The record is an 84-nucleotide RNA sequence from Bacillus sp. MUM 116, which matches "ZMP/ZTP riboswitch aptamer (pfl RNA motif)" in Rfam. The family's consensus secondary structure is taken from published work. The match comes from Rfam's covariance-model search (50 bits).

RNA sequence: GGAAAAUGCAGUGACUGACGACAACCGUGGAAUUAACCACAUGGGAGCUGCAUUUUAUACGGUCGGGUCGUCUGGGCAGAGAUA
Numbered sequence: 001g002g003a004a005a006a007u008g009c010a011g012u013g014a015c016u017g018a019c020g021a022c023a024a025c026c027g028u029g030g031a032a033u034u035a036a037c038c039a040c041a042u043g044g045g046a047g048c049u050g051c052a053u054u055u056u057a058u059a060c061g062g063u064c065g066g067g068u069c070g071u072c073u074g075g076g077c078a079g080a081g082a083u084a
Stems, first nucleotide, its partner, number of pairs: 003056010015044002017072005027040004060079001062077003